RNA sequence: UAUUUUUAACUUUGAGUCCACACAUACGACCGUCACACUCGAAUGGGUGCCGCGCCUAAAAAGCGGUUUUCGAGUGGGGUGUAUGGAGGCCCAAC
Numbered sequence: 001u002a003u004u005u006u007u008a009a010c011u012u013u014g015a016g017u018c019c020a021c022a023c024a025u026a027c028g029a030c031c032g033u034c035a036c037a038c039u040c041g042a043a044u045g046g047g048u049g050c051c052g053c054g055c056c057u058a059a060a061a062a063g064c065g066g067u068u069u070u071c072g073a074g075u076g077g078g079g080u081g082u083a084u085g086g087a088g089g090c091c092c093a094a095c
Base pairs, nucleotide, nucleotide: 023085024084025083026082027081029080030079031078036076037075038074039073040072041071042070043069049067050066051065052064053063